[Rfam]
Nucleotides: 105
Stems, first nucleotide, its partner, number of pairs: 006104004011024002014021001026095002031090004037065004042060002066079003
Number, partner (000 for none) and nucleotide at each position: 001000c002000a003000c004000u005000g006104c007103g008102g009101c010000u011024g012023g013000c014021g015000g016000u017000u018000c019000a020000c021014c022000a023012c024011c025000c026095g027094a028000g029000a030000g031090g032089g033088u034087g035000a036000a037065c038064g039063c040062a041000u042060c043059g044000g045000u046000u047000u048000u049000u050000c051000c052000g053000a054000u055000u056000u057000c058000u059043c060042g061000c062040u063039g064038c065037g066079g067078g068077c069000a070000a071000c072000g073000a074000a075000a076000c077068g078067c079066c080000a081000g082000a083000c084000g085000a086000g087034c088033a089032u090031c091000u092000u093000a094027u095026c096000c097000g098000u099000c100000c101009g102008c103007c104006g105000c